[Rfam]
The family of this 83-nucleotide RNA sequence from Insulibacter thermoxylanivorax is "tRNA".

RNA sequence: GGAGGCUUAGCGAAGUGGCCAAACGCGGCAGACUGUAAAUCUGCUCCCGUAAGGGUUCGGUGGUUCGAAUCCAUCAGCCUCCA
Numbered sequence: 001g002g003a004g005g006c007u008u009a010g011c012g013a014a015g016u017g018g019c020c021a022a023a024c025g026c027g028g029c030a031g032a033c034u035g036u037a038a039a040u041c042u043g044c045u046c047c048c049g050u051a052a053g054g055g056u057u058c059g060g061u062g063g064u065u066c067g068a069a070u071c072c073a074u075c076a077g078c079c080u081c082c083a
Stems, first nucleotide, its partner, number of pairs: 001082007010026003028044005059075005
The family's consensus secondary structure is taken from published work. It is annotated as a transfer RNA.